[Rfam]
RNA sequence: ACCAAAAAUACAUACUUCUUUACAUUCCAUAAUAAUCUAUUUUCAUAUGGGUACAUAAAAAAGUAUGUGCUCUGGGC
Numbered sequence: 001a002c003c004a005a006a007a008a009u010a011c012a013u014a015c016u017u018c019u020u021u022a023c024a025u026u027c028c029a030u031a032a033u034a035a036u037c038u039a040u041u042u043u044c045a046u047a048u049g050g051g052u053a054c055a056u057a058a059a060a061a062a063g064u065a066u067g068u069g070c071u072c073u074g075g076g077c
Base pairs, nucleotide, nucleotide: 007071009069010068011067012066013065014064015063016062017061019059020058021057022056027050028049029048030047031046
RNA: mir-1 microRNA precursor family
Organism: Pogona vitticeps